[Rfam]
RNA sequence: UCCGCACACCCACCGGUAUCCGGCAGGAGCGGGGGACCCACAGGUACCACGCCUGUUCCGGUCUCCGGAACGGCUAGGGGUAUAGCCGCGCAGCCGCGUGGCCGGGCAUCUCCAGCCCGCACCCGACAGCUCACCUCGCAGGCGCCGGAGAGGAAUUCU
Numbered sequence: 001u002c003c004g005c006a007c008a009c010c011c012a013c014c015g016g017u018a019u020c021c022g023g024c025a026g027g028a029g030c031g032g033g034g035g036a037c038c039c040a041c042a043g044g045u046a047c048c049a050c051g052c053c054u055g056u057u058c059c060g061g062u063c064u065c066c067g068g069a070a071c072g073g074c075u076a077g078g079g080g081u082a083u084a085g086c087c088g089c090g091c092a093g094c095c096g097c098g099u100g101g102c103c104g105g106g107c108a109u110c111u112c113c114a115g116c117c118c119g120c121a122c123c124c125g126a127c128a129g130c131u132c133a134c135c136u137c138g139c140a141g142g143c144g145c146c147g148g149a150g151a152g153g154a155a156u157u158c159u
Base pairs, nucleotide, nucleotide: 001028002027003026029139030138031137032136033135034134039077078124079123080122086101087100088099089098104118105117106116107115
Record summary: The record is a 159-nucleotide RNA sequence from Streptomyces olivochromogenes, which matches "c-di-AMP riboswitch aptamer (ydaO/yuaA leader)" in Rfam. Rfam's curators write: This family represents a conserved RNA structure found upstream of the ydaO and yuaA genes in Bacillus subtilis and related genes in other bacteria. Lineage of the source: Bacteria > Actinomycetes > Kitasatosporales > Streptomycetaceae > Streptomyces.